[Rfam]
RNA: mir-2774 microRNA precursor family
RNA sequence: ACAACAUUUGGACCAUCUGUCUACCUAGCAAUAUCACCCGCUCAGUGAAAAAUCUUCCCUCCGUCGU
Numbered sequence: 001a002c003a004a005c006a007u008u009u010g011g012a013c014c015a016u017c018u019g020u021c022u023a024c025c026u027a028g029c030a031a032u033a034u035c036a037c038c039c040g041c042u043c044a045g046u047g048a049a050a051a052a053u054c055u056u057c058c059c060u061c062c063g064u065c066g067u
Stems, first nucleotide, its partner, number of pairs: 004064002010058003015053002020049001022047003027042003